[Rfam]
Rfam assigns this 33-nucleotide RNA from Enterococcus pallens to the family "L31-Firmicutes ribosomal protein leader". The literature on the family includes a 2020 paper in BMC Microbiol by Eckert and Weinberg, "Discovery of 20 novel ribosomal leader candidates in bacteria and archaea". It is annotated as a cis-regulatory leader.
RNA sequence: CUCUGAUUCAGCAAAUGUUUCAGGGCAAAGGAG
Numbered sequence: 001c002u003c004u005g006a007u008u009c010a011g012c013a014a015a016u017g018u019u020u021c022a023g024g025g026c027a028a029a030g031g032a033g
Base pairs, nucleotide, nucleotide: 001025002024003023004022005021006016007015008014